[Rfam]
RNA sequence: CUUCUGCCCUCCCCGCACAGGAGGGUGGAACGAGACCGGGCGCUCUCUGCCCUGACUGUGCCUGGUCUCCGAUCGCUCCGGGCUGCGGUGCCGGACGGGUUGAGGGUCCCGUCCCGGCGC
Numbered sequence: 001c002u003u004c005u006g007c008c009c010u011c012c013c014c015g016c017a018c019a020g021g022a023g024g025g026u027g028g029a030a031c032g033a034g035a036c037c038g039g040g041c042g043c044u045c046u047c048u049g050c051c052c053u054g055a056c057u058g059u060g061c062c063u064g065g066u067c068u069c070c071g072a073u074c075g076c077u078c079c080g081g082g083c084u085g086c087g088g089u090g091c092c093g094g095a096c097g098g099g100u101u102g103a104g105g106g107u108c109c110c111g112u113c114c115c116g117g118c119g120c
Stems, first nucleotide, its partner, number of pairs: 003029004008024005032069009042059002044055002074090004079085002093114007
Annotation:
The record is a 120-nucleotide RNA from Streptomyces radiopugnans, which matches "Streptomyces sRNA scr5239" in Rfam. It is annotated as a small RNA. Taxonomically the source falls in Streptomyces (Bacteria, Actinomycetota, Actinomycetes, Streptomycetaceae). Its family is annotated with negative regulation of translation and mRNA binding in the Gene Ontology.